A member of the RNA family "Small nucleolar RNA SNORA31" from Propithecus coquereli, 129 nucleotides long. The organism belongs to Propithecus, within Eukaryota. For this family Rfam cites "RNomics: an experimental approach that identifies 201 candidates for novel, small, non-messenger RNAs in mouse" (Huttenhofer et al., EMBO J, 2001). The family's consensus secondary structure was predicted with RNAalifold. By type it is an H/ACA-box small nucleolar RNA.
RNA sequence: AUGCAUCUCUGACAGACCUGGAGCAGUACCGUCUGCUGCUAAGGUUUCCACUAUAGAUGCAAGAAAAAUGUCCUCGCGCUUUCUGUCUGCCUGAUUGUGGCAGCCAAGAUUGAAUAGAGGAAUACAAGG
Numbered sequence: 001a002u003g004c005a006u007c008u009c010u011g012a013c014a015g016a017c018c019u020g021g022a023g024c025a026g027u028a029c030c031g032u033c034u035g036c037u038g039c040u041a042a043g044g045u046u047u048c049c050a051c052u053a054u055a056g057a058u059g060c061a062a063g064a065a066a067a068a069u070g071u072c073c074u075c076g077c078g079c080u081u082u083c084u085g086u087c088u089g090c091c092u093g094a095u096u097g098u099g100g101c102a103g104c105c106a107a108g109a110u111u112g113a114a115u116a117g118a119g120g121a122a123u124a125c126a127a128g129g
Stems, first nucleotide, its partner, number of pairs: 002061007010050002014047005022037005071121005079112001082109003087103005